A member of the RNA family "JUMPstart RNA" from Escherichia coli, 39 nucleotides long. NCBI's taxonomy places the organism under Bacteria, Gammaproteobacteria, Escherichia, Escherichia coli, Escherichia coli O83:H1.
Nucleotides: 039
Stems, first nucleotide, its partner, number of pairs: 008026005
Number, partner (000 for none) and nucleotide at each position: 001000c002000a003000g004000c005000g006000c007000u008026c009025a010024g011023g012022u013000a014000g015000c016000u017000g018000u019000u020000a021000a022012g023011c024010u025009u026008g027000g028000g029000g030000c031000g032000g033000u034000a035000g036000c037000g038000u039000g
Rfam 15.1 lists 288 matches to the family in 230 species. Pairs were carried over by alignment from the consensus structure, which is taken from published work.